Rfam assigns this 130-nucleotide RNA from Desmophyllum pertusum to the family "Small Cajal body specific RNA 8". scaRNAs are a specific class of small nuclear RNAs which localise to the Cajal bodies and guide the modification of RNA polymerase II transcribed spliceosomal RNAs U1, U2, U4, U5 and U12. U92 belong to the H/ACA box class of guide RNAs as it has the predicted hairpin-hinge-hairpin-tail structure, conserved H/ACA-box motifs and is found associated with GAR1. The organism belongs to Desmophyllum, within Eukaryota. The match comes from Rfam's covariance-model search (65 bits). The literature on the family includes a 2002 paper in EMBO J by Darzacq et al., "Cajal body-specific small nuclear RNAs: a novel class of 2'-O-methylation and pseudouridylation guide RNAs". By type it is a small Cajal body RNA.

RNA sequence: UGGGAGUUUGAUACUUGGCACAUAAAUGUUCUUGUUGUGUUCAUCACUUAACUCCCUAAAUAAAUGUUGCUCUCUGAUGACUGUAUAAUGCACAAGAAAAGCCAUACAGACAGAUACGGAGCACACAAAA
Numbered sequence: 001u002g003g004g005a006g007u008u009u010g011a012u013a014c015u016u017g018g019c020a021c022a023u024a025a026a027u028g029u030u031c032u033u034g035u036u037g038u039g040u041u042c043a044u045c046a047c048u049u050a051a052c053u054c055c056c057u058a059a060a061u062a063a064a065u066g067u068u069g070c071u072c073u074c075u076g077a078u079g080a081c082u083g084u085a086u087a088a089u090g091c092a093c094a095a096g097a098a099a100a101g102c103c104a105u106a107c108a109g110a111c112a113g114a115u116a117c118g119g120a121g122c123a124c125a126c127a128a129a130a
Base pairs, nucleotide, nucleotide: 002056003055004054005053006052007051016043017042018041022036066124068123069122070121071120072119073118081109082108083107086104089101